[Rfam]
A member of the RNA family "c-di-GMP-I riboswitch aptamer" from Anaerosolibacter carboniphilus, 87 nucleotides long.
Pairs were carried over by alignment from the consensus structure, which is taken from published work.

RNA sequence: CAUUGAUAAAGGCAAACUUAUCGAAAGGUAAGGACGCAAAGCCAUGGGUCUAAAGAAAAAACUUUCUAUGAUUGCCAGGUUACCAGA
Number, nucleotide and partner (000 for none) at each position: 001c000002a000003u000004u000005g000006a000007u000008a000009a000010a000011g000012g037013c036014a000015a000016a000017c032018u031019u030020a029021u028022c027023g000024a000025a000026a000027g022028g021029u020030a019031a018032g017033g000034a000035c000036g013037c012038a000039a000040a081041g080042c079043c078044a000045u077046g076047g075048g072049u071050c070051u000052a000053a000054a000055g066056a065057a064058a063059a000060a000061a000062c000063u058064u057065u056066c055067u000068a000069u000070g050071a049072u048073u000074g000075c047076c046077a045078g043079g042080u041081u040082a000083c000084c000085a000086g000087a000